[Rfam]
RNA sequence: CCGUGGCUGGAACCGGUGCUAAAGGGUGACCCUUUCACACCGGCUCGUGUUACCAGCCGGUGUUAAAGACCCUUUAGCACCGGUUCCAGCCACGGA
Numbered sequence: 001c002c003g004u005g006g007c008u009g010g011a012a013c014c015g016g017u018g019c020u021a022a023a024g025g026g027u028g029a030c031c032c033u034u035u036c037a038c039a040c041c042g043g044c045u046c047g048u049g050u051u052a053c054c055a056g057c058c059g060g061u062g063u064u065a066a067a068g069a070c071c072c073u074u075u076a077g078c079a080c081c082g083g084u085u086c087c088a089g090c091c092a093c094g095g096a
Stems, first nucleotide, its partner, number of pairs: 003093025037063002040060002047053002
Dot-bracket structure: ..(((((((((((((((((((((((((.........((.((.....((...)).....)).)).....)))))))))))))))))))))))))...
The record is a 96-nucleotide RNA sequence from Sorghum bicolor, which matches "MIR5387 microRNA precursor family" in Rfam. Its family is annotated with miRNA-mediated post-transcriptional gene silencing and RISC complex in the Gene Ontology. The family's consensus secondary structure was predicted with RNAalifold. NCBI's taxonomy places the organism under Eukaryota, Streptophytina, Mesangiospermae, Andropogoneae, Sorghum.